The family of this 168-nucleotide RNA sequence from Phaseolus vulgaris is "small nucleolar RNA snoR143". Rfam 15.1 lists 660 matches to the family in 212 species. It is annotated as an H/ACA-box small nucleolar RNA. Pairs were carried over by alignment from the consensus structure, which was predicted with RNAalifold. A reference for the family is Chen and Wu (2009), "Mining small RNA sequencing data: a new approach to identify small nucleolar RNAs in Arabidopsis", Nucleic Acids Res.

RNA sequence: AUGCACCUUGUAUCGUAGGCCUCUCCGAUUUCGUGGAGAGGUCUGUGAGCAGUUGUGCGUAAAGUGAGUGCUGAUUCGUCAGCAGGCAGCCAGACAACUGCCGUGGUGGAUCCACAGAUGAACGGAUCAUUCUCAAUGCUGUUUGUCUACUAAUUUCACUGUACAUUU
Numbered sequence: 001a002u003g004c005a006c007c008u009u010g011u012a013u014c015g016u017a018g019g020c021c022u023c024u025c026c027g028a029u030u031u032c033g034u035g036g037a038g039a040g041g042u043c044u045g046u047g048a049g050c051a052g053u054u055g056u057g058c059g060u061a062a063a064g065u066g067a068g069u070g071c072u073g074a075u076u077c078g079u080c081a082g083c084a085g086g087c088a089g090c091c092a093g094a095c096a097a098c099u100g101c102c103g104u105g106g107u108g109g110a111u112c113c114a115c116a117g118a119u120g121a122a123c124g125g126a127u128c129a130u131u132c133u134c135a136a137u138g139c140u141g142u143u144u145g146u147c148u149a150c151u152a153a154u155u156u157c158a159c160u161g162u163a164c165a166u167u168u
Stems, first nucleotide, its partner, number of pairs: 002059005009051003013048015103162008121144002123141003
Dot-bracket structure: .(((((..(((.(((((((((((((((......))))))))))))))))))...)))))...........................................((((((((..........(((((.............))).))..........))))))))......